[Rfam]
RNA sequence: UGGGAGGCAGGUACUGAGCUGUGCUCUGUCCGUCACUAGCCCUCCCUAUAGCGUCCUCGCUCUCUGAUGACCGUGGCAAGCUAAGAGGUAUCACAGUGGACCGAUACGGGGCAGACAACU
Numbered sequence: 001u002g003g004g005a006g007g008c009a010g011g012u013a014c015u016g017a018g019c020u021g022u023g024c025u026c027u028g029u030c031c032g033u034c035a036c037u038a039g040c041c042c043u044c045c046c047u048a049u050a051g052c053g054u055c056c057u058c059g060c061u062c063u064c065u066g067a068u069g070a071c072c073g074u075g076g077c078a079a080g081c082u083a084a085g086a087g088g089u090a091u092c093a094c095a096g097u098g099g100a101c102c103g104a105u106a107c108g109g110g111g112c113a114g115a116c117a118a119c120u
Base pairs, nucleotide, nucleotide: 002046003045004044005043006042007041016026017025018024019023056114057113059112060111061110062109063108071099072098073097076094079091
The record is a 120-nucleotide sequence from Salmo salar, which matches "Small Cajal body specific RNA 8" in Rfam. Its family is annotated with nucleolus, RNA processing and Cajal body in the Gene Ontology. scaRNAs are a specific class of small nuclear RNAs which localise to the Cajal bodies and guide the modification of RNA polymerase II transcribed spliceosomal RNAs U1, U2, U4, U5 and U12. U92 belong to the H/ACA box class of guide RNAs as it has the predicted hairpin-hinge-hairpin-tail structure, conserved H/ACA-box motifs and is found associated with GAR1. The family's consensus secondary structure is taken from published work. The match comes from Rfam's covariance-model search (68 bits).